[Rfam]
RNA sequence: AACACCUAAAACAACGAAAGCCCUACCUCUCUUUCAUCCUUACGGUUCCUAGACCGUGCCAGUUUGAAUUUAGGGAGAAUGCUGUAG
Numbered sequence: 001a002a003c004a005c006c007u008a009a010a011a012c013a014a015c016g017a018a019a020g021c022c023c024u025a026c027c028u029c030u031c032u033u034u035c036a037u038c039c040u041u042a043c044g045g046u047u048c049c050u051a052g053a054c055c056g057u058g059c060c061a062g063u064u065u066g067a068a069u070u071u072a073g074g075g076a077g078a079a080u081g082c083u084g085u086a087g
Base pairs, nucleotide, nucleotide: 034067035066036065039062040061041058042057043056044055045054046053047052